[Rfam]
RNA sequence: AAUUGAAUCGUACUACACCCUUAUAUAUCCUCGAUAAUAUGGUUCGAGAGUCUCUACCGGGUUACCGUUAAUAACCCGACUAUAAGGGCAGGUUUCUAAAAG
Numbered sequence: 001a002a003u004u005g006a007a008u009c010g011u012a013c014u015a016c017a018c019c020c021u022u023a024u025a026u027a028u029c030c031u032c033g034a035u036a037a038u039a040u041g042g043u044u045c046g047a048g049a050g051u052c053u054c055u056a057c058c059g060g061g062u063u064a065c066c067g068u069u070a071a072u073a074a075c076c077c078g079a080c081u082a083u084a085a086g087g088g089c090a091g092g093u094u095u096c097u098a099a100a101a102g
Stems, first nucleotide, its partner, number of pairs: 018088008030048005058078007
Shown here is a 102-nucleotide RNA sequence from Bacillus salinus, a member of the family "Purine riboswitch aptamer".
On this family, see Reining et al., Nature 2013: "Three-state mechanism couples ligand and temperature sensing in riboswitches".